[Rfam]
Glutamine-II riboswitch aptamer: a 63-nucleotide sequence from cyanobiont of Ornithocercus magnificus.

RNA sequence: CAACGUUCACCCUUUCUCCUGAUGGGGCGCAGUUCGACUCAGGCCAUGGAACGGGGACCUGAG
Numbered sequence: 001c002a003a004c005g006u007u008c009a010c011c012c013u014u015u016c017u018c019c020u021g022a023u024g025g026g027g028c029g030c031a032g033u034u035c036g037a038c039u040c041a042g043g044c045c046a047u048g049g050a051a052c053g054g055g056g057a058c059c060u061g062a063g
Base pairs, nucleotide, nucleotide: 004053005052006051007050008049010027011026012025013024038063039062040061041060042059043058044056045055
It scores 68 bits against the family's covariance model.
NCBI's taxonomy places the organism under Bacteria, Bacillati, Cyanobacteriota, Cyanophyceae, Synechococcales.
Gene Ontology term of the family: glutamine binding.